[Rfam]
RNA sequence: AGGGCGGGACGGGCCCCUCUGACGGUAUGAAUGCCGUGAUGUCGGACCGCAUCG
Numbered sequence: 001a002g003g004g005c006g007g008g009a010c011g012g013g014c015c016c017c018u019c020u021g022a023c024g025g026u027a028u029g030a031a032u033g034c035c036g037u038g039a040u041g042u043c044g045g046a047c048c049g050c051a052u053c054g
Base pairs, nucleotide, nucleotide: 006048007047010044011043012042022037023036024035025034026033027032
Rfam assigns this 54-nucleotide RNA sequence from Gemmobacter lanyuensis to the family "terC RNA". The organism belongs to Gemmobacter, within Bacteria.